The record is a 367-nucleotide RNA sequence from Nocardioides gansuensis, which matches "Bacterial RNase P class A" in Rfam.
RNA sequence: UGGGCUGGCCGGGCGACCGCGUCGCUCCCUGCUUCACGGCAGGUGGCGCCGAGGAAGGUCCGGGCUCCACAGGGCAGGGUGAUGGCCAACGGCCAUCCGGGGCAACCCGCGGGAAAGUGCCACAGAGAACAGACCGCCACUGCGUGCAGUGGUAAGGGUGAAACGGUGGUGCAAGAGACCACCAGUGCGGCGGGCGACCGUCGCAGCUCGGCAAACCCCACCCGGAGCAAGGUCAGACAGUGUGCGUGCGAGGGCGGCCCGUCCGAGCACACGGGUAGACCGCACGAGGCGGCCGGCAACGGUCGCCCGAGAUGGAUGGUCGCCACGCUUCGGCGGACAGAACCCGGCCUACAGGCCAGCCCAUUCG
Numbered sequence: 001u002g003g004g005c006u007g008g009c010c011g012g013g014c015g016a017c018c019g020c021g022u023c024g025c026u027c028c029c030u031g032c033u034u035c036a037c038g039g040c041a042g043g044u045g046g047c048g049c050c051g052a053g054g055a056a057g058g059u060c061c062g063g064g065c066u067c068c069a070c071a072g073g074g075c076a077g078g079g080u081g082a083u084g085g086c087c088a089a090c091g092g093c094c095a096u097c098c099g100g101g102g103c104a105a106c107c108c109g110c111g112g113g114a115a116a117g118u119g120c121c122a123c124a125g126a127g128a129a130c131a132g133a134c135c136g137c138c139a140c141u142g143c144g145u146g147c148a149g150u151g152g153u154a155a156g157g158g159u160g161a162a163a164c165g166g167u168g169g170u171g172c173a174a175g176a177g178a179c180c181a182c183c184a185g186u187g188c189g190g191c192g193g194g195c196g197a198c199c200g201u202c203g204c205a206g207c208u209c210g211g212c213a214a215a216c217c218c219c220a221c222c223c224g225g226a227g228c229a230a231g232g233u234c235a236g237a238c239a240g241u242g243u244g245c246g247u248g249c250g251a252g253g254g255c256g257g258c259c260c261g262u263c264c265g266a267g268c269a270c271a272c273g274g275g276u277a278g279a280c281c282g283c284a285c286g287a288g289g290c291g292g293c294c295g296g297c298a299a300c301g302g303u304c305g306c307c308c309g310a311g312a313u314g315g316a317u318g319g320u321c322g323c324c325a326c327g328c329u330u331c332g333g334c335g336g337a338c339a340g341a342a343c344c345c346g347g348c349c350u351a352c353a354g355g356c357c358a359g360c361c362c363a364u365u366c367g
Base pairs, nucleotide, nucleotide: 001363002362003361004360005359006358007357008356009355010354011352012324013323014322015321016320017319018318020051021050023048024047025046026045028043029042030041031040032039056350057349058348060347061346062345063344064343065227066226067225068224072260073259074258075257077223078222079221080220081219082096083095084094085093086092097111098109099108100107101106112218113217117216118215119212120211121210134157135156136153137152138151139150140149141148142147165183166182167181168180169179170178185207186205187204188203189202190201191200192199193198231281232280233279234278240272241271242270243269244268245267252264253263254262255261288307289306290305291304292303293302294301295300
About this RNA:
The match comes from Rfam's covariance-model search (292 bits). By type it is a ribozyme.